[Rfam]
RNA: Bacterial large subunit ribosomal RNA, nucleotides 1290 to 1672
RNA sequence: GAUAAUGCGGGCGAGAAACCCGCACACCGUAAGACCCAGGUUUCCUGAUCAACGCUAAUCGGAUCAGGGUUAGUCGGGACCUAAGGCGAACCCGAAGGGGGUAGUCGAUGGCAAAUGGGUUAAUAUUCCCAUACUGGAUGUACAGGUGAUGGAGUGACGGAGUGAUGAAAGGAACGCGCGGUGACGGAAUACCGCGUUGAAGGUUGUAGGUAUUGGACGGGUAGUUAAAUGCGCCUGUUUAGCCGAAAGCCGAUAGUACCGGGCGUCUACGGACAACCGGAUAGUUUCCCUAAGGGCUUCCAAGAAAAACUUCUAGCGUCAAGAGUACAUUCACCCGUACCGCAAACCGACACAGGUGGUCGAGGAGAGUAUCCUAAGGUGCU
Numbered sequence: 001g002a003u004a005a006u007g008c009g010g011g012c013g014a015g016a017a018a019c020c021c022g023c024a025c026a027c028c029g030u031a032a033g034a035c036c037c038a039g040g041u042u043u044c045c046u047g048a049u050c051a052a053c054g055c056u057a058a059u060c061g062g063a064u065c066a067g068g069g070u071u072a073g074u075c076g077g078g079a080c081c082u083a084a085g086g087c088g089a090a091c092c093c094g095a096a097g098g099g100g101g102u103a104g105u106c107g108a109u110g111g112c113a114a115a116u117g118g119g120u121u122a123a124u125a126u127u128c129c130c131a132u133a134c135u136g137g138a139u140g141u142a143c144a145g146g147u148g149a150u151g152g153a154g155u156g157a158c159g160g161a162g163u164g165a166u167g168a169a170a171g172g173a174a175c176g177c178g179c180g181g182u183g184a185c186g187g188a189a190u191a192c193c194g195c196g197u198u199g200a201a202g203g204u205u206g207u208a209g210g211u212a213u214u215g216g217a218c219g220g221g222u223a224g225u226u227a228a229a230u231g232c233g234c235c236u237g238u239u240u241a242g243c244c245g246a247a248a249g250c251c252g253a254u255a256g257u258a259c260c261g262g263g264c265g266u267c268u269a270c271g272g273a274c275a276a277c278c279g280g281a282u283a284g285u286u287u288c289c290c291u292a293a294g295g296g297c298u299u300c301c302a303a304g305a306a307a308a309a310c311u312u313c314u315a316g317c318g319u320c321a322a323g324a325g326u327a328c329a330u331u332c333a334c335c336c337g338u339a340c341c342g343c344a345a346a347c348c349g350a351c352a353c354a355g356g357u358g359g360u361c362g363a364g365g366a367g368a369g370u371a372u373c374c375u376a377a378g379g380u381g382c383u
Base pairs, nucleotide, nucleotide: 006024007023008022009021010020011019025381026380027379028378033361034360035359036358039341040340044068045067046066047065048064049063053061054060075337076336077335078334080111081110085106086105087104089102091100092099093098115132116131117130118129119128135333136332137331138330139329140328141327142326143325146317147316151313152312153311154310155309159300160299161298162297166293171288172287173286174285175284176197177196178195179194180193181192198256202251203250204249205248209244210243211242216239217238218237219236220235221234222233224232225231259280260279261278262277347356348355363375364374365373366372